[Rfam]
RNA sequence: GGGUGACUCCUUGGCGCUUGCGCGCUGUUUUGAUGAAGAUUCGCACCUCUAACAAAACGGGCAACCCCACCUCUUGGCAAGGCCUUGCUGUCAGAUCAAGUCUGAACUUCUGCACCUCAUUGCUCUUGGUACGUGAGCCAACCAAUCCGUCAUCCAGGAAGAAGGCCCGCUUUACGAUAGUCCUCAACGAGCGAAUCGUAG
Numbered sequence: 001g002g003g004u005g006a007c008u009c010c011u012u013g014g015c016g017c018u019u020g021c022g023c024g025c026u027g028u029u030u031u032g033a034u035g036a037a038g039a040u041u042c043g044c045a046c047c048u049c050u051a052a053c054a055a056a057a058c059g060g061g062c063a064a065c066c067c068c069a070c071c072u073c074u075u076g077g078c079a080a081g082g083c084c085u086u087g088c089u090g091u092c093a094g095a096u097c098a099a100g101u102c103u104g105a106a107c108u109u110c111u112g113c114a115c116c117u118c119a120u121u122g123c124u125c126u127u128g129g130u131a132c133g134u135g136a137g138c139c140a141a142c143c144a145a146u147c148c149g150u151c152a153u154c155c156a157g158g159a160a161g162a163a164g165g166c167c168c169g170c171u172u173u174a175c176g177a178u179a180g181u182c183c184u185c186a187a188c189g190a191g192c193g194a195a196u197c198g199u200a201g
Base pairs, nucleotide, nucleotide: 001067002066003065004064007061009060010059014025015024016023017022027058028057029056030055031054032053034051035050037048038047069199070198075149076148077147081143082142085141086140090107091106092104093103094102095101096100109136110135114130168193169192170191171190173189176185177184
RNA: Proteobacterial sRNA psRNA2